[Rfam]
RNA sequence: UUCAUCUGCGCGCUUAAUUCUCGUAAGAGAAGCGGGGGACCCACGAACUGGGGUGAAUCGGAAUGUUUUUUUCCGUAGGGGCCUCUCAAAUCCGAACCCGGCAGCUAACCUCGCAAGCGUCAUUGGGAGAAAAG
Numbered sequence: 001u002u003c004a005u006c007u008g009c010g011c012g013c014u015u016a017a018u019u020c021u022c023g024u025a026a027g028a029g030a031a032g033c034g035g036g037g038g039a040c041c042c043a044c045g046a047a048c049u050g051g052g053g054u055g056a057a058u059c060g061g062a063a064u065g066u067u068u069u070u071u072u073c074c075g076u077a078g079g080g081g082c083c084u085c086u087c088a089a090a091u092c093c094g095a096a097c098c099c100g101g102c103a104g105c106u107a108a109c110c111u112c113g114c115a116a117g118c119g120u121c122a123u124u125g126g127g128a129g130a131a132a133a134g
Stems, first nucleotide, its partner, number of pairs: 011119004018031003032114006042050002051099003059075004078093003
A member of the RNA family "c-di-AMP riboswitch aptamer (ydaO/yuaA leader)" from Paenibacillus sp. HGF7, 134 nucleotides long. The match comes from Rfam's covariance-model search (98 bits). Lineage of the source: Bacteria > Bacillati > Bacillota > Paenibacillaceae > Paenibacillus.